[Rfam]
RNA sequence: ACCCAGAUCAUGGGAGAAUCGGCCUAGCCGAUGCCGAAGGAGCAACCGCCCCGGAAACUCUCAGGCCCAAGGACCGUGAUCUGCGA
Numbered sequence: 001a002c003c004c005a006g007a008u009c010a011u012g013g014g015a016g017a018a019u020c021g022g023c024c025u026a027g028c029c030g031a032u033g034c035c036g037a038a039g040g041a042g043c044a045a046c047c048g049c050c051c052c053g054g055a056a057a058c059u060c061u062c063a064g065g066c067c068c069a070a071g072g073a074c075c076g077u078g079a080u081c082u083g084c085g086a
Base pairs, nucleotide, nucleotide: 006081007080008079009078010077011076012075013074019031020030021029022028033066034065035064036062037061040060041059042058046054047053
Glycine riboswitch aptamer: an 86-nucleotide RNA from Sulfitobacter sediminilitoris. This family represents the bacterial glycine riboswitch. Glycine riboswitches usually consist of two metabolite-binding aptamers domains with similar structures in tandem. The aptamers cooperatively bind glycine to regulate the expression of downstream genes. In Bacillus subtilis, this riboswitch is found upstream of the gcvT operon which controls glycine degradation. The organism belongs to Sulfitobacter, within Bacteria. The base pairs follow the family's consensus structure. Gene Ontology term of the family: glycine biosynthetic process.